Record summary
c-di-AMP riboswitch aptamer (ydaO/yuaA leader): a 152-nucleotide RNA sequence from Geodermatophilus nigrescens. Lineage of the source: Bacteria > Actinomycetota > Actinomycetes > Geodermatophilaceae > Geodermatophilus.
RNA sequence: CGCCGGACCACGCCGAACCGGACGCCGGCAGCCAGCCGCCCUCCGGACCGGGGACCCAUCGAGUCCCAGGGGUGAAGCGCGACCUCUCGCGCCGGGCGACUCCCCCGCCCGAACCCGUCAGCUAACCCGGUAGGCGACCGUGGAGAACAGGA
Number, nucleotide and partner (000 for none) at each position: 001c000002g000003c000004c000005g000006g000007a000008c000009c000010a000011c136012g135013c134014c133015g000016a000017a000018c046019c045020g044021g043022a042023c000024g000025c000026c000027g000028g000029c000030a000031g000032c000033c000034a000035g000036c000037c000038g000039c000040c000041c000042u022043c021044c020045g019046g018047a131048c130049c129050g128051g127052g126053g000054a000055c000056c000057c069058a000059u000060c000061g000062a000063g000064u000065c000066c000067c000068a000069g057070g116071g115072g114073u000074g000075a000076a000077g000078c091079g090080c089081g088082a000083c000084c000085u000086c000087u000088c081089g080090c079091g078092c000093c000094g110095g109096g108097c107098g000099a000100c000101u000102c000103c000104c000105c000106c000107g097108c096109c095110c094111g000112a000113a000114c072115c071116c070117g000118u000119c000120a000121g000122c000123u000124a000125a000126c052127c051128c050129g049130g048131u047132a000133g014134g013135c012136g011137a000138c000139c000140g000141u000142g000143g000144a000145g000146a000147a000148c000149a000150g000151g000152a000